[Rfam]
RNA sequence: UUUCCCUGAUGAAGGUAAAAAAGACAAGCAUAUGGCUGAUGGCAUAGUGAUGUCACUUUACUUCUGAGAAA
Numbered sequence: 001u002u003u004c005c006c007u008g009a010u011g012a013a014g015g016u017a018a019a020a021a022a023g024a025c026a027a028g029c030a031u032a033u034g035g036c037u038g039a040u041g042g043c044a045u046a047g048u049g050a051u052g053u054c055a056c057u058u059u060a061c062u063u064c065u066g067a068g069a070a071a
Stems, first nucleotide, its partner, number of pairs: 001071004
Small nucleolar RNA SNORD27: a 71-nucleotide RNA sequence from Ornithorhynchus anatinus. By type it is a C/D-box small nucleolar RNA. The match comes from Rfam's covariance-model search (62 bits). Its family is annotated with nucleolus and RNA processing in the Gene Ontology. Pairs were carried over by alignment from the consensus structure. Rfam 15.1 lists 218 matches to the family in 175 species.